A member of the RNA family "Mammalian CPEB3 ribozyme" from Alligator sinensis, 73 nucleotides long. Pairs were carried over by alignment from the consensus structure, which is taken from published work. A reference for the family is Salehi-Ashtiani et al. (2006), "A genomewide search for ribozymes reveals an HDV-like sequence in the human CPEB3 gene", Science. Its family is annotated with RNA nuclease activity in the Gene Ontology. Taxonomically the source falls in Alligator (Eukaryota, Sauropsida, Sauria, Alligatoridae).

RNA sequence: UUGGAAGUUCAAGGCCAUAGCAGAAUCACACAAUGCCGCCUGUCAGAUUCUAACAAAAUUUGUGAAUUCUGCU
Numbered sequence: 001u002u003g004g005a006a007g008u009u010c011a012a013g014g015c016c017a018u019a020g021c022a023g024a025a026u027c028a029c030a031c032a033a034u035g036c037c038g039c040c041u042g043u044c045a046g047a048u049u050c051u052a053a054c055a056a057a058a059u060u061u062g063u064g065a066a067u068u069c070u071g072c073u
Base pairs, nucleotide, nucleotide: 013040014039015038016035019073020072021071022070023069024068025067044062045061046060047059048058049057